Plastid-psbA-1 3UTR RNA: a 128-nucleotide sequence from Oryza glumipatula. Rfam's curators write: Plastid psbA-1 is a non-coding RNA (ncRNA) present in plastids. It was identified in inverted repeat sequences in the 3 prime untranslate region (3UTR) of photosystem II quinone-binding protein (psbA).
[Rfam]
RNA sequence: UUGAAGUUCCAUCUCUUAAUAGAUAAGGCUUUUCUGCUAACAAAUAGCAAUUUUUGAAGAAAGGAAAGCUAGAAAUACCCAAUAUCUUGCUGAAGCAAGAUAAGCAAGAUAUUGGGUAUUUCUUUUUU
Number, nucleotide and partner (000 for none) at each position: 001u000002u000003g000004a000005a000006g000007u000008u023009c022010c000011a020012u019013c000014u000015c000016u000017u000018a000019a012020u011021a000022g009023a008024u000025a000026a000027g000028g000029c000030u000031u000032u000033u000034c000035u000036g000037c000038u000039a000040a000041c000042a000043a000044a000045u000046a000047g000048c000049a000050a000051u000052u000053u000054u000055u000056g000057a000058a000059g000060a000061a000062a000063g000064g000065a000066a128067a127068g126069c000070u000071a123072g122073a121074a120075a119076u118077a117078c116079c000080c114081a113082a112083u000084a110085u109086c108087u107088u106089g105090c104091u103092g000093a000094a000095g000096c000097a000098a000099g000100a000101u000102a000103a091104g090105c089106a088107a087108g086109a085110u084111a000112u082113u081114g080115g000116g078117u077118a076119u075120u074121u073122c072123u071124u000125u000126u068127u067128u066
Annotation: A search with the family's covariance model found it, with a score of 73 bits. Rfam classes the family as a cis-regulatory element. The organism belongs to Oryza, within Eukaryota.